[Rfam]
RNA sequence: CCUUCGCAUUUUGAAUUGGGUCGACGCCCAAGCCAACCUGCCUUUCCGGGCAAGGUGGAUCGCGAAAGCGGAUGUGGCUCCUGAGCGAGCAAGCAAACGGAUAACG
Numbered sequence: 001c002c003u004u005c006g007c008a009u010u011u012u013g014a015a016u017u018g019g020g021u022c023g024a025c026g027c028c029c030a031a032g033c034c035a036a037c038c039u040g041c042c043u044u045u046c047c048g049g050g051c052a053a054g055g056u057g058g059a060u061c062g063c064g065a066a067a068g069c070g071g072a073u074g075u076g077g078c079u080c081c082u083g084a085g086c087g088a089g090c091a092a093g094c095a096a097a098c099g100g101a102u103a104a105c106g
Stems, first nucleotide, its partner, number of pairs: 006075005017030005033058002037055003040051003045101004077090004